Rfam assigns this 328-nucleotide sequence from Chordeiles acutipennis to the family "7SK RNA". It is annotated as a non-coding RNA gene. Rfam's curators write: 7SK was discovered as an abundant small nuclear RNA in the mid-70s but a possible function has only recently been suggested. Two independent studies have found that 7SK RNA binds the CDK9/cyclin T complex (known as elongation factor P-TEFb). P-TEFb activates transcription by phosphorylating the C-terminal domain of RNA polymerase II. This process is negatively regulated by the 7SK RNP. The secondary structure of 7SK RNA shown here was proposed by Wasserman and Steitz on the basis of chemical modification and enzymatic cleavage experiments. This family contains a number of annotated pseudogenes and 7SK derived repeats. The threshold is artificially high to minimise the pseudogene count. Pairs were carried over by alignment from the consensus structure, which is taken from published work. A reference for the family is Blencowe (2002), "Transcription: surprising role for an elusive small nuclear RNA", Curr Biol.

RNA sequence: GGAUGUGAGGGUGAUCUGGCUGCGACAUCUGUCACCCCACUGAUCACCAGGGUUGAUUCAACUGGUCUGGCUGGCUAGAUGGGUGUCCCCUUCCUCCCUUACCACUCCAUGUGCAUCCGUCCCAAAGCUGUGAGCUCAGUUGAAGAGGACGACUUUCCCCAAUAGAGAUAGGACUUUCAUCAAUCAAGGGUGUAUAGUAGCUGUGCCGCCUUGCUAGAACCUCCUAAUAAGCUCAAGAUCCAUUUGUAGGAGUACACAGGGUAGUGACGCUUCCAAAACUUCAGACACAUCCAGGUGAGGCAAUGCAUGGGGCAGUCUGCCAUUGUUU
Numbered sequence: 001g002g003a004u005g006u007g008a009g010g011g012u013g014a015u016c017u018g019g020c021u022g023c024g025a026c027a028u029c030u031g032u033c034a035c036c037c038c039a040c041u042g043a044u045c046a047c048c049a050g051g052g053u054u055g056a057u058u059c060a061a062c063u064g065g066u067c068u069g070g071c072u073g074g075c076u077a078g079a080u081g082g083g084u085g086u087c088c089c090c091u092u093c094c095u096c097c098c099u100u101a102c103c104a105c106u107c108c109a110u111g112u113g114c115a116u117c118c119g120u121c122c123c124a125a126a127g128c129u130g131u132g133a134g135c136u137c138a139g140u141u142g143a144a145g146a147g148g149a150c151g152a153c154u155u156u157c158c159c160c161a162a163u164a165g166a167g168a169u170a171g172g173a174c175u176u177u178c179a180u181c182a183a184u185c186a187a188g189g190g191u192g193u194a195u196a197g198u199a200g201c202u203g204u205g206c207c208g209c210c211u212u213g214c215u216a217g218a219a220c221c222u223c224c225u226a227a228u229a230a231g232c233u234c235a236a237g238a239u240c241c242a243u244u245u246g247u248a249g250g251a252g253u254a255c256a257c258a259g260g261g262u263a264g265u266g267a268c269g270c271u272u273c274c275a276a277a278a279c280u281u282c283a284g285a286c287a288c289a290u291c292c293a294g295g296u297g298a299g300g301c302a303a304u305g306c307a308u309g310g311g312g313c314a315g316u317c318u319g320c321c322a323u324u325g326u327u328u
Stems, first nucleotide, its partner, number of pairs: 001108003005102007013093002018090002024087010035074002037070003042067004116171001120166002122139001125136001127135002140162003147158003200270002206264001209261005221252004227247005293328003297323001299321003302316001304314003